The record is a 159-nucleotide RNA from Gossypium anomalum, which matches "U1 spliceosomal RNA" in Rfam. Lineage of the source: Eukaryota > Tracheophyta > Gunneridae > Malvoideae > Gossypium. The base pairs follow the family's consensus structure, which is taken from published work. A search with the family's covariance model found it, with a score of 129 bits.
RNA sequence: AUACUUACCUGGACGGGGUUAAUGAGUGAUCAGGAAGGCUCAUUGCCUAGAGUAGUGACCUGCAUUGCACUUGGUAGGGGUGCUACUUUAAGGUCUCCCCAAGGGGGAGAACCUACGUCAUAAUUUGUGGCCGGGGGCUUGCGUUCGCGCAGCCCUUAU
Numbered sequence: 001a002u003a004c005u006u007a008c009c010u011g012g013a014c015g016g017g018g019u020u021a022a023u024g025a026g027u028g029a030u031c032a033g034g035a036a037g038g039c040u041c042a043u044u045g046c047c048u049a050g051a052g053u054a055g056u057g058a059c060c061u062g063c064a065u066u067g068c069a070c071u072u073g074g075u076a077g078g079g080g081u082g083c084u085a086c087u088u089u090a091a092g093g094u095c096u097c098c099c100c101a102a103g104g105g106g107g108a109g110a111a112c113c114u115a116c117g118u119c120a121u122a123a124u125u126u127g128u129g130g131c132c133g134g135g136g137g138c139u140u141g142c143g144u145u146c147g148c149g150c151a152g153c154c155c156u157u158a159u
Stems, first nucleotide, its partner, number of pairs: 012119004016048004021043001023042005049089004055083003059079003062075002091114003094110003098106002134156003140151004